Rfam assigns this 147-nucleotide RNA from Peptoclostridium litorale to the family "Ribosomal protein L10 leader". Taxonomically the source falls in Peptoclostridium litorale (Bacteria, Bacillota, Clostridia, Peptoclostridium).

RNA sequence: UUGUUAAAAAUAAAUAUGCCGCAGACAGUAGGCGCGAAAGCUUAAAAUGCCUACCGAGGUCAAAUACUUCGAAAAUUCGAAGUUUUGAAUUUUGAAAUUCAAGCCCUUGUCUGUCUGUGAGCAUACAAGGGCUUUUAUAGUGUUUAU
Numbered sequence: 001u002u003g004u005u006a007a008a009a010a011u012a013a014a015u016a017u018g019c020c021g022c023a024g025a026c027a028g029u030a031g032g033c034g035c036g037a038a039a040g041c042u043u044a045a046a047a048u049g050c051c052u053a054c055c056g057a058g059g060u061c062a063a064a065u066a067c068u069u070c071g072a073a074a075a076u077u078c079g080a081a082g083u084u085u086u087g088a089a090u091u092u093u094g095a096a097a098u099u100c101a102a103g104c105c106c107u108u109g110u111c112u113g114u115c116u117g118u119g120a121g122c123a124u125a126c127a128a129g130g131g132c133u134u135u136u137a138u139a140g141u142g143u144u145u146a147u
Base pairs, nucleotide, nucleotide: 028054029053030052031051032050033049034041035040103132104131105130106129107128108127109126110125112123113122114121
This family is a putative r-protein leader autoregulatory structure found in B. subtilis and other low-GC Gram-positive bacteria. It is located in the 5' untranslated regions of mRNAs encoding ribosomal proteins L10 and L12 (rplJ-rplL). A Rho-independent transcription terminator structure that is probably involved in regulation is included at the 3' end. The match comes from Rfam's covariance-model search (82 bits). It is annotated as a cis-regulatory leader. Its family is annotated with regulation of gene expression in the Gene Ontology.